[Rfam]
RNA sequence: CGCCUUAUGCCUGAAAGGGCGACGGCGUCGAGCCGGAGCGAGAAGUCAGCAGAGGCCGUAGUAGUCACAGGACAGGUCGAUGAGGCUGAAGCUGGUGACGAAGGGC
Number, nucleotide and partner (000 for none) at each position: 001c030002g029003c000004c000005u024006u000007a000008u021009g020010c019011c018012u017013g000014a000015a000016a000017g012018g011019g010020c009021g008022a000023c000024g005025g000026c000027g000028u000029c002030g001031a000032g000033c000034c000035g000036g000037a000038g000039c000040g000041a000042g000043a000044a000045g000046u053047c052048a000049g000050c000051a000052g047053a046054g000055g106056c105057c104058g000059u000060a000061g000062u000063a000064g099065u098066c097067a096068c095069a000070g000071g000072a000073c000074a000075g000076g000077u000078c000079g000080a000081u000082g000083a000084g000085g000086c000087u000088g000089a000090a000091g000092c000093u000094g000095g068096u067097g066098a065099c064100g000101a000102a000103g000104g057105g056106c055
RNA: Group II catalytic intron D1-D4-1
Organism: Burkholderia orbicola